[Rfam]
RNA sequence: UACUUCUGUCUUGUGCUCAUAUCGGAUAAAUCUUUCGCCUUUUACUAAAGAUUUCCGUGGAUGCGGGACACUAAAGAAGAUUACCCGAAUUUUUUGGUAAAACCCUCUCUUUUUC
Numbered sequence: 001u002a003c004u005u006c007u008g009u010c011u012u013g014u015g016c017u018c019a020u021a022u023c024g025g026a027u028a029a030a031u032c033u034u035u036c037g038c039c040u041u042u043u044a045c046u047a048a049a050g051a052u053u054u055c056c057g058u059g060g061a062u063g064c065g066g067g068a069c070a071c072u073a074a075a076g077a078a079g080a081u082u083a084c085c086c087g088a089a090u091u092u093u094u095u096g097g098u099a100a101a102a103c104c105c106u107c108u109c110u111u112u113u114u115c
Base pairs, nucleotide, nucleotide: 003079004078005077006076009068010067011066012065013064014063015062017060018059019058028054029053030052031051032050033049034048035047097115099114100113101112102111